[Rfam]
RNA sequence: ACGCUGCAGCCGCCGCCUGGACCGGGGACCCACCGCAGUUCUGGGGUGAAGCACGGCCGCACGCAGGUGCGGCCGAGCCGGGCGAGUUCCCCGCCCGAACCCGUCAGCUAACUCGGUAGGCGGUUGAGGAGAACAA
Numbered sequence: 001a002c003g004c005u006g007c008a009g010c011c012g013c014c015g016c017c018u019g020g021a022c023c024g025g026g027g028a029c030c031c032a033c034c035g036c037a038g039u040u041c042u043g044g045g046g047u048g049a050a051g052c053a054c055g056g057c058c059g060c061a062c063g064c065a066g067g068u069g070c071g072g073c074c075g076a077g078c079c080g081g082g083c084g085a086g087u088u089c090c091c092c093g094c095c096c097g098a099a100c101c102c103g104u105c106a107g108c109u110a111a112c113u114c115g116g117u118a119g120g121c122g123g124u125u126g127a128g129g130a131g132a133a134c135a136a
Stems, first nucleotide, its partner, number of pairs: 002122004010020003021117006031043002044102003052077001054075009080096004
This 136-nucleotide RNA from Modestobacter roseus belongs to the Rfam family "c-di-AMP riboswitch aptamer (ydaO/yuaA leader)". NCBI's taxonomy places the organism under Bacteria, Bacillati, Actinomycetes, Geodermatophilaceae, Modestobacter. A search with the family's covariance model found it, with a score of 57 bits. Rfam describes the family as follows. This family represents a conserved RNA structure found upstream of the ydaO and yuaA genes in Bacillus subtilis and related genes in other bacteria. Its family is annotated with cyclic-di-AMP binding and regulation of gene expression in the Gene Ontology.